[Rfam]
RNA sequence: UGGCUGUGAUGGUCAUCUGGUUGGAAAGUUGAGGGUUCUCCCUUUGCCAAGACUGUUUGCUGGGCUUCUGGCUUGGCAGUGUCCGCGGUGUCGAGUUCGAACUUCCUGGUGCGCGUUUCCCGUCGGGCCGAGUAAUCACCCAGCACGGGCGCGUGUAAAGUUGGAGGGUAUUUGUGAGGGUGGAAACACCGCAGCAGCCCCUCCACCAGAGAGUGGCGUCAACACGGUAGCACCUGCGGUCAUAUGGGUACUGGUAUUGGGAGGUUUGGACUCCGCUAACCAAUUUUU
Numbered sequence: 001u002g003g004c005u006g007u008g009a010u011g012g013u014c015a016u017c018u019g020g021u022u023g024g025a026a027a028g029u030u031g032a033g034g035g036u037u038c039u040c041c042c043u044u045u046g047c048c049a050a051g052a053c054u055g056u057u058u059g060c061u062g063g064g065c066u067u068c069u070g071g072c073u074u075g076g077c078a079g080u081g082u083c084c085g086c087g088g089u090g091u092c093g094a095g096u097u098c099g100a101a102c103u104u105c106c107u108g109g110u111g112c113g114c115g116u117u118u119c120c121c122g123u124c125g126g127g128c129c130g131a132g133u134a135a136u137c138a139c140c141c142a143g144c145a146c147g148g149g150c151g152c153g154u155g156u157a158a159a160g161u162u163g164g165a166g167g168g169u170a171u172u173u174g175u176g177a178g179g180g181u182g183g184a185a186a187c188a189c190c191g192c193a194g195c196a197g198c199c200c201c202u203c204c205a206c207c208a209g210a211g212a213g214u215g216g217c218g219u220c221a222a223c224a225c226g227g228u229a230g231c232a233c234c235u236g237c238g239g240u241c242a243u244a245u246g247g248g249u250a251c252u253g254g255u256a257u258u259g260g261g262a263g264g265u266u267u268g269g270a271c272u273c274c275g276c277u278a279a280c281c282a283a284u285u286u287u288u
Stems, first nucleotide, its partner, number of pairs: 001015004019285006028276002031273003037269002041264002047260004052255004059072005080244003083239004087234005092226002095223002098218002101214004106209004114153003118149003122144002125141003130137002155161002162205007172197004180189003